[Rfam]
RNA: Bacterial large subunit ribosomal RNA, nucleotides 9 to 595
RNA sequence: CUGCAAGGGCGUAUGGUGGAUGCCUUGGCAGACAGGACCGAUGAAGGACGUGGUGGGCCGCGAUAGGCCUCGGGGAGCCGCCGAGCGGGCUUUGAUCCGAGGGUGUCCGAAUGGGGAAACCCGCCGCCUGUUGUGGGGCGGCACCGCAGUUGUUGCGGGGGGUACGCAGGGAAGUGAAACAUCUCAGUACCUGCAGGAAAGGAUAUUCCGUGAGUAGUGGCGAGCGAAAGCGGAUGAUGGCCAAACCUUGCGCGUGUGAUAGCCGCCGGGCGUUGCGCGUGGGGUGUUGUGGGGUGUCGUGUCCGGUUCCCGGUGGGGCCGGCGGCAGUGAUAAAGUCGUGUGUUAGGCGAACGGGAUUGGAUUCCCGGCCGUAGAGGGUGAUGGCCCCGUAGCCGUAUGCGCAUGGCCUGUCGAUUGGCAAUCCCCAAGUAGCGCGGGCCUCGUGGAAUCCCGUGUGAAUCCGCCCAGACCGUUGGGUAAGCCUGAAUAUUCCUGUCUGACCGAUAGUGAACUAGUACCGUGAGGGAAAGGUGAAAAGCACCCCGGGAGGGGAGUGAAACAGUCCCUGAAACCGUGCGCCUACGAU
Numbered sequence: 001c002u003g004c005a006a007g008g009g010c011g012u013a014u015g016g017u018g019g020a021u022g023c024c025u026u027g028g029c030a031g032a033c034a035g036g037a038c039c040g041a042u043g044a045a046g047g048a049c050g051u052g053g054u055g056g057g058c059c060g061c062g063a064u065a066g067g068c069c070u071c072g073g074g075g076a077g078c079c080g081c082c083g084a085g086c087g088g089g090c091u092u093u094g095a096u097c098c099g100a101g102g103g104u105g106u107c108c109g110a111a112u113g114g115g116g117a118a119a120c121c122c123g124c125c126g127c128c129u130g131u132u133g134u135g136g137g138g139c140g141g142c143a144c145c146g147c148a149g150u151u152g153u154u155g156c157g158g159g160g161g162g163u164a165c166g167c168a169g170g171g172a173a174g175u176g177a178a179a180c181a182u183c184u185c186a187g188u189a190c191c192u193g194c195a196g197g198a199a200a201g202g203a204u205a206u207u208c209c210g211u212g213a214g215u216a217g218u219g220g221c222g223a224g225c226g227a228a229a230g231c232g233g234a235u236g237a238u239g240g241c242c243a244a245a246c247c248u249u250g251c252g253c254g255u256g257u258g259a260u261a262g263c264c265g266c267c268g269g270g271c272g273u274u275g276c277g278c279g280u281g282g283g284g285u286g287u288u289g290u291g292g293g294g295u296g297u298c299g300u301g302u303c304c305g306g307u308u309c310c311c312g313g314u315g316g317g318g319c320c321g322g323c324g325g326c327a328g329u330g331a332u333a334a335a336g337u338c339g340u341g342u343g344u345u346a347g348g349c350g351a352a353c354g355g356g357a358u359u360g361g362a363u364u365c366c367c368g369g370c371c372g373u374a375g376a377g378g379g380u381g382a383u384g385g386c387c388c389c390g391u392a393g394c395c396g397u398a399u400g401c402g403c404a405u406g407g408c409c410u411g412u413c414g415a416u417u418g419g420c421a422a423u424c425c426c427c428a429a430g431u432a433g434c435g436c437g438g439g440c441c442u443c444g445u446g447g448a449a450u451c452c453c454g455u456g457u458g459a460a461u462c463c464g465c466c467c468a469g470a471c472c473g474u475u476g477g478g479u480a481a482g483c484c485u486g487a488a489u490a491u492u493c494c495u496g497u498c499u500g501a502c503c504g505a506u507a508g509u510g511a512a513c514u515a516g517u518a519c520c521g522u523g524a525g526g527g528a529a530a531g532g533u534g535a536a537a538a539g540c541a542c543c544c545c546g547g548g549a550g551g552g553g554a555g556u557g558a559a560a561c562a563g564u565c566c567c568u569g570a571a572a573c574c575g576u577g578c579g580c581c582u583a584c585g586a587u
Stems, first nucleotide, its partner, number of pairs: 007582010022567001023532002027503002029500007036492002038161002046108003049062003068102007077090003113122003123142007144158006165196001166194005176183002206488001207234005217225002239484003246284011291427003295421005334410001336408009347395003353368005371375001377389003433457007464479005519526002542553004